[Rfam]
RNA sequence: UUUUACCCCCGAUAGGAGCGGCAUCCUUUGUUUUUUUUCUUUAAAAAAACAAAGAUAUAGCGGAUAGCGGGAAUCCUG
Numbered sequence: 001u002u003u004u005a006c007c008c009c010c011g012a013u014a015g016g017a018g019c020g021g022c023a024u025c026c027u028u029u030g031u032u033u034u035u036u037u038u039c040u041u042u043a044a045a046a047a048a049a050c051a052a053a054g055a056u057a058u059a060g061c062g063g064a065u066a067g068c069g070g071g072a073a074u075c076c077u078g
Base pairs, nucleotide, nucleotide: 009070010069011068013066014065018061019060023056024055025054029051030050031049032048033047034046035045036044

A member of the RNA family "Flavo-1 RNA" from Flavobacterium succinicans, 78 nucleotides long. NCBI's taxonomy places the organism under Bacteria, Bacteroidota, Flavobacteriia, Flavobacteriaceae, Flavobacterium. The family has 201 seed sequences and 7,497 matches in Rfam 15.1. Pairs were carried over by alignment from the consensus structure, which is taken from published work.